[Rfam]
SAH (S-adenosyl-L-homocysteine) riboswitch aptamer: an 80-nucleotide sequence from Catellatospora sp. IY07-71. A reference for the family is Wang et al. (2008), "Riboswitches that sense S-adenosylhomocysteine and activate genes involved in coenzyme recycling", Mol Cell. Lineage of the source: Bacteria > Actinomycetota > Actinomycetes > Micromonosporaceae > Catellatospora.
RNA sequence: CAGGUCGAGAGGCGCUGCAACGGGCUGUUUCAGCCCGCCACGCUCGGCCGGUUCCACUUCCGCAAGGGCGCCUCCGAUCC
Number, nucleotide and partner (000 for none) at each position: 001c000002a000003g049004g048005u047006c046007g045008a044009g000010a000011g000012g000013c000014g000015c000016u000017g000018c000019a000020a000021c037022g036023g035024g034025c033026u032027g000028u000029u000030u000031c000032a026033g025034c024035c023036c022037g021038c000039c000040a000041c000042g000043c000044u008045c007046g006047g005048c004049c003050g000051g000052u000053u000054c000055c000056a000057c000058u000059u000060c000061c000062g000063c000064a000065a000066g000067g000068g000069c000070g000071c000072c000073u000074c000075c000076g000077a000078u000079c000080c000